[Rfam]
Nucleotides: 336
Stems, first nucleotide, its partner, number of pairs: 001336004008330003013282004018277001022066004035052005040046001076320005086258004096110005111130008131254007151239008283308005289302001
Number, partner (000 for none) and nucleotide at each position: 001336g002335g003334c004333g005000g006000a007000g008330g009329g010328a011000a012000g013282c014281u015280c016279a017000u018277c019000g020000u021000u022066g023065g024064g025063g026000c027000u028000a029000c030000a031000a032000g033000c034000u035052g036051a037050g038049u039048g040046c041000g042000u043000c044000a045000c046040g047000u048039c049038a050037c051036u052035c053000c054000c055000c056000a057000g058000c059000c060000c061000a062000g063025c064024c065023c066022u067000u068000g069000g070000g071000a072000a073000g074000g075000u076320c077319u078318g079317a080316g081000a082000c083000g084000a085000g086258g087257g088256c089255c090000a091000a092000u093000a094000g095000c096110g097109g098108c099107c100106c101000u102000a103000g104000c105000a106100g107099g108098g109097c110096u111130c112129c113128u114127c115126c116125c117124g118123c119000g120000a121000u122000u123118g124117u125116g126115g127114g128113g129112g130111g131254g132253u133252g134251a135250g136249u137248u138000c139000c140000c141000a142000g143000a144000a145000a146000a147000u148000g149000g150000g151239g152238c153237c154236c155235g156234g157233u158232u159000u160000g161000g162000g163000g164000g165000u166000a167000a168000g169000a170000c171000u172000g173000g174000g175000c176000a177000g178000g179000a180000g181000a182000a183000g184000c185000c186000c187000a188000u189000g190000c191000g192000u193000a194000c195000c196000a197000c198000a199000c200000c201000c202000c203000c204000g205000g206000g207000u208000g209000u210000g211000g212000c213000c214000u215000g216000g217000g218000c219000g220000g221000a222000u223000g224000c225000c226000u227000c228000c229000c230000u231000c232158g233157a234156c235155c236154g237153g238152g239151c240000u241000u242000g243000g244000a245000a246000a247000c248137g249136a250135c251134u252133c253132a254131c255089g256088g257087c258086c259000a260000g261000c262000g263000a264000a265000g266000u267000g268000a269000g270000u271000g272000c273000a274000a275000u276000g277018g278000c279016u280015g281014a282013g283308g284307u285306g286305g287304g288000u289302u290000a291000c292000c293000u294000c295000c296000u297000c298000g299000a300000g301000g302289a303000u304287c305286c306285c307284a308283u309000a310000a311000c312000c313000c314000a315000a316080u317079u318078c319077a320076g321000a322000c323000u324000a325000c326000u327000c328010u329009c330008c331000c332000c333004c334003g335002c336001c